[Rfam]
This 156-nucleotide RNA from Streptomyces sp. F-3 belongs to the Rfam family "c-di-AMP riboswitch aptamer (ydaO/yuaA leader)". This family represents a conserved RNA structure found upstream of the ydaO and yuaA genes in Bacillus subtilis and related genes in other bacteria.
RNA sequence: GCUCCGUGUGCGCCGAGUCCCGCAAGGGAGCCGGGGAACCAACAACUUGGGGUGAAUCGAGCCCAACCGCCGUGGGAGCACGGUCGGUUGACGCGCGUAGGAGACCUUCCCCUCCGAACCCGUCAGCUAACCCGGCAGGCGAUGGAAGGAAAGGAG
Numbered sequence: 001g002c003u004c005c006g007u008g009u010g011c012g013c014c015g016a017g018u019c020c021c022g023c024a025a026g027g028g029a030g031c032c033g034g035g036g037a038a039c040c041a042a043c044a045a046c047u048u049g050g051g052g053u054g055a056a057u058c059g060a061g062c063c064c065a066a067c068c069g070c071c072g073u074g075g076g077a078g079c080a081c082g083g084u085c086g087g088u089u090g091a092c093g094c095g096c097g098u099a100g101g102a103g104a105c106c107u108u109c110c111c112c113u114c115c116g117a118a119c120c121c122g123u124c125a126g127c128u129a130a131c132c133c134g135g136c137a138g139g140c141g142a143u144g145g146a147a148g149g150a151a152a153g154g155a156g
Stems, first nucleotide, its partner, number of pairs: 011141004018029003030136006040049002050121003058097002061094001100115004